mir-551 microRNA precursor family: a 74-nucleotide RNA sequence from Crocuta crocuta. The literature on the family includes a 2008 paper in Genome Res by Murchison et al., "Conservation of small RNA pathways in platypus". Rfam links the family to the GO terms RISC complex and miRNA-mediated post-transcriptional gene silencing. The base pairs follow the family's consensus structure, which was predicted with RNAalifold.
RNA sequence: UGACCCUGGAAAUCCAGGGCGGGUGAGGCCUGUCUGACCAUUCCUAGGUGACCUCCUCUUGUGUUCCCUGGUUG
Numbered sequence: 001u002g003a004c005c006c007u008g009g010a011a012a013u014c015c016a017g018g019g020c021g022g023g024u025g026a027g028g029c030c031u032g033u034c035u036g037a038c039c040a041u042u043c044c045u046a047g048g049u050g051a052c053c054u055c056c057u058c059u060u061g062u063g064u065u066c067c068c069u070g071g072u073u074g
Stems, first nucleotide, its partner, number of pairs: 002073004009066003014061001016059002021054004028049004
Dot-bracket structure: .((((...(((..(.((...((((...((((..............)))).))))...)).)..)))...)))).

The match comes from Rfam's covariance-model search (53 bits).